[Rfam]
This 126-nucleotide RNA sequence from Hymenochirus boettgeri belongs to the Rfam family "Small nucleolar RNA SNORA68". Lineage of the source: Eukaryota > Deuterostomia > Amphibia > Pipidae > Hymenochirus. From the family's description: U68 is a member of the H/ACA class of small nucleolar RNAs (snoRNAs) which act as guides in the the modification of uridines to pseudouridines.
RNA sequence: GCUGCACACAAAACCCAAAGAUUAUUUCUGUGUAAUAAUCUUGUCUGGUGUGCAUAUAUUAAUUGUACCUUGUCGCCUUUCAUGAGCUGAUGUGCCUAUGAAAGUGAAAUGAAAGUUUCAACAAAU
Numbered sequence: 001g002c003u004g005c006a007c008a009c010a011a012a013a014c015c016c017a018a019a020g021a022u023u024a025u026u027u028c029u030g031u032g033u034a035a036u037a038a039u040c041u042u043g044u045c046u047g048g049u050g051u052g053c054a055u056a057u058a059u060u061a062a063u064u065g066u067a068c069c070u071u072g073u074c075g076c077c078u079u080u081c082a083u084g085a086g087c088u089g090a091u092g093u094g095c096c097u098a099u100g101a102a103a104g105u106g107a108a109a110u111g112a113a114a115g116u117u118u119c120a121a122c123a124a125a126u
Base pairs, nucleotide, nucleotide: 003054004053005052006051007050008049009048020040021039022038023037024036025035026034028032065119067117069115070114071113077104078103079102080101081100082099083098084097086095087094

It is annotated as an H/ACA-box small nucleolar RNA. Its family is annotated with nucleolus and RNA processing in the Gene Ontology. Rfam 15.1 lists 1,079 matches to the family in 643 species.